[Rfam]
RNA sequence: UGUUUUGAGUAACCGCUCAAUUUUUAUUGAGAGGAAAGUCCAUGCUCACACAAGCUGAGAUGCUUGUAGUGUUCGUGCUUGACGAAACCAUAAGUCAAGGUAGCUAUUAUGAUAGCUAACGGCAGGGAAGCAAUCUAAGUCGUAAGAUAUGAUUGUGAAACCUUUAAAGUGCCACAGAGACGAGUUUGAUUGGAAACAAUCAAAGUGGAACGCGGUAAACCCCACGAGUGAGCAACCCAAAAAUAUGGUAGGGGCACUUUCUGCAGGGAAAUGAACCAAGCAGAAAGACAAGUUUAACUUGUAGAUAGAUGGUUACUGCCGGAGUACGAGGUUGACCACCGUUUGCAGUACUAAGGUACAGAACAUGGCUUAUAAAA
Numbered sequence: 001u002g003u004u005u006u007g008a009g010u011a012a013c014c015g016c017u018c019a020a021u022u023u024u025u026a027u028u029g030a031g032a033g034g035a036a037a038g039u040c041c042a043u044g045c046u047c048a049c050a051c052a053a054g055c056u057g058a059g060a061u062g063c064u065u066g067u068a069g070u071g072u073u074c075g076u077g078c079u080u081g082a083c084g085a086a087a088c089c090a091u092a093a094g095u096c097a098a099g100g101u102a103g104c105u106a107u108u109a110u111g112a113u114a115g116c117u118a119a120c121g122g123c124a125g126g127g128a129a130g131c132a133a134u135c136u137a138a139g140u141c142g143u144a145a146g147a148u149a150u151g152a153u154u155g156u157g158a159a160a161c162c163u164u165u166a167a168a169g170u171g172c173c174a175c176a177g178a179g180a181c182g183a184g185u186u187u188g189a190u191u192g193g194a195a196a197c198a199a200u201c202a203a204a205g206u207g208g209a210a211c212g213c214g215g216u217a218a219a220c221c222c223c224a225c226g227a228g229u230g231a232g233c234a235a236c237c238c239a240a241a242a243a244u245a246u247g248g249u250a251g252g253g254g255c256a257c258u259u260u261c262u263g264c265a266g267g268g269a270a271a272u273g274a275a276c277c278a279a280g281c282a283g284a285a286a287g288a289c290a291a292g293u294u295u296a297a298c299u300u301g302u303a304g305a306u307a308g309a310u311g312g313u314u315a316c317u318g319c320c321g322g323a324g325u326a327c328g329a330g331g332u333u334g335a336c337c338a339c340c341g342u343u344u345g346c347a348g349u350a351c352u353a354a355g356g357u358a359c360a361g362a363a364c365a366u367g368g369c370u371u372a373u374a375a376a377a
Stems, first nucleotide, its partner, number of pairs: 004377003007373001008317007016031006036371003040368005045232005050067006073227005078099006100120001101118006121222002124163003132154004139148003169220002171216003185204008236253003257287007288302006319356002323352005
A member of the RNA family "Bacterial RNase P class B" from Filobacillus milosensis, 377 nucleotides long. By type it is a ribozyme. Clan: RNaseP clan. NCBI's taxonomy places the organism under Bacteria, Bacilli, Caryophanales, Bacillaceae, Filobacillus. It scores 336 bits against the family's covariance model.